[Rfam]
RNA sequence: UCGCCCGGGUCAGGAGAGAAGCCCUUCAUUUCGAUGACACGGCUCGCCGAAGGCGCAGGCGGCACCGCACACCGGGUGCUCUGAACGCUCAGGCAAAAGGACUGGCAAACAUGG
Numbered sequence: 001u002c003g004c005c006c007g008g009g010u011c012a013g014g015a016g017a018g019a020a021g022c023c024c025u026u027c028a029u030u031u032c033g034a035u036g037a038c039a040c041g042g043c044u045c046g047c048c049g050a051a052g053g054c055g056c057a058g059g060c061g062g063c064a065c066c067g068c069a070c071a072c073c074g075g076g077u078g079c080u081c082u083g084a085a086c087g088c089u090c091a092g093g094c095a096a097a098a099g100g101a102c103u104g105g106c107a108a109a110c111a112u113g114g
Stems, first nucleotide, its partner, number of pairs: 009106005020044004046094003049090002053088003058082002